Shown here is a 179-nucleotide RNA from Desulforudis audaxviator, a member of the family "glmS glucosamine-6-phosphate activated ribozyme aptamer". The family's consensus secondary structure is taken from published work. A reference for the family is Winkler et al. (2004), "Control of gene expression by a natural metabolite-responsive ribozyme", Nature. This entry contains a glucosamine-6-phosphate activated ribozyme that is found in the mRNA for GlmS. GlmS is an enzyme that uses fructose-6-phosphate and glutamine to generate glucosamine-6-phosphate. NCBI's taxonomy places the organism under Bacteria, Clostridia, Desulforudaceae, Desulforudis, Desulforudis audaxviator.

RNA sequence: GAAUAAAAACCAGCGCCAGAACCCCCGUGCCGCGUUUGCGGUGUGUGCAGUGCGGGGGUUGACGAGGGGGAGGUUCAUCGAAGGAUUCGGCGGAUGCCUCCCGGCUUGGGGUCACGGCCGAGAACGGCGCCACAAAACCGCGGGGUGACCCGCGGGACAAAAGCGCCCGGUGACCUGAA
Dot-bracket structure: ...................((((((((.(.....................).))))))))........(((((....((((.....))))......)))))(((((.(......))))))....((((((.......(((((((....))))))).......)))).))..........